[Rfam]
RNA sequence: GAGACAAAUGCUGAAGCUAUAACUAAUAAAAUGAAAUUCCUCUUUGACUGGCCAAUAGAAAUAUUGGCCACUUUUUU
Dot-bracket structure: ......(..((....))..)............................(((((((((....))))))))).......
Numbered sequence: 001g002a003g004a005c006a007a008a009u010g011c012u013g014a015a016g017c018u019a020u021a022a023c024u025a026a027u028a029a030a031a032u033g034a035a036a037u038u039c040c041u042c043u044u045u046g047a048c049u050g051g052c053c054a055a056u057a058g059a060a061a062u063a064u065u066g067g068c069c070a071c072u073u074u075u076u077u
Stems, first nucleotide, its partner, number of pairs: 007020001010017002049070009
This 77-nucleotide sequence from Ewingella americana belongs to the Rfam family "sroB RNA".
It is annotated as a small RNA.
A search with the family's covariance model found it, with a score of 69 bits.